A member of the RNA family "Purine riboswitch aptamer" from Aureibacillus halotolerans, 100 nucleotides long.
[Rfam]
RNA sequence: AUUUAAUGAACAUGAGUGCGUCGUAUAUUCUUGGGGAUAUGGCCCAAAAGUUUCUACCGAGCUACCGUAAAUAGCUUGACCGAGGGAUGUAUCAAGGGGA
Numbered sequence: 001a002u003u004u005a006a007u008g009a010a011c012a013u014g015a016g017u018g019c020g021u022c023g024u025a026u027a028u029u030c031u032u033g034g035g036g037a038u039a040u041g042g043c044c045c046a047a048a049a050g051u052u053u054c055u056a057c058c059g060a061g062c063u064a065c066c067g068u069a070a071a072u073a074g075c076u077u078g079a080c081c082g083a084g085g086g087a088u089g090u091a092u093c094a095a096g097g098g099g100a
Stems, first nucleotide, its partner, number of pairs: 019085001021083003029049001031047005058078007
Taxonomically the source falls in Aureibacillus (Bacteria, Bacillati, Bacillota, Bacilli). Riboswitches are metabolite binding domains within certain messenger RNAs that serve as precision sensors for their corresponding targets.